A member of the RNA family "Qrr RNA" from Photobacterium damselae, 104 nucleotides long. Gene Ontology term of the family: quorum sensing. The organism belongs to Photobacterium damselae subsp. damselae, within Bacteria. The literature on the family includes a 2007 paper in Genes Dev by Tu and Bassler, "Multiple small RNAs act additively to integrate sensory information and control quorum sensing in Vibrio harveyi".

[Rfam]
RNA sequence: UAACUCUUACUUAAGAGUUAACCUAGCCAACUGACGUUGUUUGUGGAAUCUAUUCACUAAACAAUGACGCCAACCGAACUUAUUUCUCGGUUGGCUUUUUUUUA
Number, nucleotide and partner (000 for none) at each position: 001u020002a019003a018004c017005u016006c015007u000008u000009a000010c000011u000012u000013a000014a000015g006016a005017g004018u003019u002020a001021a000022c000023c000024u000025a000026g000027c000028c000029a000030a000031c000032u000033g000034a000035c000036g000037u067038u066039g065040u064041u000042u000043g057044u056045g055046g054047a053048a000049u000050c000051u000052a000053u047054u046055c045056a044057c043058u000059a000060a000061a000062c000063a000064a040065u039066g038067a037068c000069g000070c094071c093072a092073a091074c090075c089076g088077a087078a000079c000080u000081u000082a000083u000084u000085u000086c000087u077088c076089g075090g074091u073092u072093g071094g070095c000096u000097u000098u000099u000100u000101u000102u000103u000104a000
It is annotated as a small RNA. Rfam describes the family as follows. This family represents a set of small RNAs (the Qrr RNAs) that are thought to be involved in the regulation of quorum sensing in Vibrio species. A search with the family's covariance model found it, with a score of 78 bits.